This 153-nucleotide RNA from Firmicutes bacterium CAG:194 belongs to the Rfam family "Clostridiales-1 RNA". Pairs were carried over by alignment from the consensus structure, which is taken from published work.
RNA sequence: GAUUCACAGUGAGGAGCGGACAUGGUAUCUGGCAAGCUUGCUUGCACGAUACCAUGUAUGCGACGAACGUAACGGCUGAGCAGCAUGCACGAAGUGCAAAUGCUGCGAAAGACGUAGGACUGCGGGAGCGAAGCGGAGCAGACCGUGUGAAUC
Numbered sequence: 001g002a003u004u005c006a007c008a009g010u011g012a013g014g015a016g017c018g019g020a021c022a023u024g025g026u027a028u029c030u031g032g033c034a035a036g037c038u039u040g041c042u043u044g045c046a047c048g049a050u051a052c053c054a055u056g057u058a059u060g061c062g063a064c065g066a067a068c069g070u071a072a073c074g075g076c077u078g079a080g081c082a083g084c085a086u087g088c089a090c091g092a093a094g095u096g097c098a099a100a101u102g103c104u105g106c107g108a109a110a111g112a113c114g115u116a117g118g119a120c121u122g123c124g125g126g127a128g129c130g131a132a133g134c135g136g137a138g139c140a141g142a143c144c145g146u147g148u149g150a151a152u153c
Base pairs, nucleotide, nucleotide: 001153002152003151004150005149006148007147010067013064016061017060018059020057021056022055023054024053025052026051027050028049029048032045033044034043035042036041071115073114074113076111077109080106081105082104083103087097088096089095090094117144118143120141121140122139123138128134129133